[Rfam]
RNA sequence: AGUAACGAGGUCCAGCGUCAAGCCCUGACUGUGCUGGCCGGCAACCCUCUUCACGGCGGGGUGCCUCAGGUGACUACUCGGCAGUGUUCAUUUGGUUCAUUUGCAAGCGUGAUCA
Numbered sequence: 001a002g003u004a005a006c007g008a009g010g011u012c013c014a015g016c017g018u019c020a021a022g023c024c025c026u027g028a029c030u031g032u033g034c035u036g037g038c039c040g041g042c043a044a045c046c047c048u049c050u051u052c053a054c055g056g057c058g059g060g061g062u063g064c065c066u067c068a069g070g071u072g073a074c075u076a077c078u079c080g081g082c083a084g085u086g087u088u089c090a091u092u093u094g095g096u097u098c099a100u101u102u103g104c105a106a107g108c109g110u111g112a113u114c115a
Stems, first nucleotide, its partner, number of pairs: 001078004009039001012037005021030002040065003045061003049056002081104004085099002089095001
The record is a 115-nucleotide RNA from Crystallibacter crystallopoietes, which matches "SAM (S-adenosyl methionine) riboswitch aptamer" in Rfam.
The base pairs follow the family's consensus structure, which is taken from published work.
Its family is annotated with regulation of gene expression and S-adenosylmethionine metabolic process in the Gene Ontology.
A search with the family's covariance model found it, with a score of 72 bits.